Rfam assigns this 101-nucleotide RNA to the family "eL15-Euryarchaeota ribosomal protein leader". The family's RNA type in Rfam is cis-regulatory leader. Rfam's curators put it in the seed alignment.
RNA sequence: CUCGCCGCCGGAUCGCGGCGCCGGGGCGACCGCGCAGUCGCUUCCGUCGACACCGAUCCGGGACGAGACGAAAUGUGGCCGCCUCGCGGCUGAAUCGCAAC
Numbered sequence: 001c002u003c004g005c006c007g008c009c010g011g012a013u014c015g016c017g018g019c020g021c022c023g024g025g026g027c028g029a030c031c032g033c034g035c036a037g038u039c040g041c042u043u044c045c046g047u048c049g050a051c052a053c054c055g056a057u058c059c060g061g062g063a064c065g066a067g068a069c070g071a072a073a074u075g076u077g078g079c080c081g082c083c084u085c086g087c088g089g090c091u092g093a094a095u096c097g098c099a100a101c
Stems, first nucleotide, its partner, number of pairs: 001067004069097003077091005
Dot-bracket structure: ((((...........................................................)))).(((.....(((((.....)))))...)))....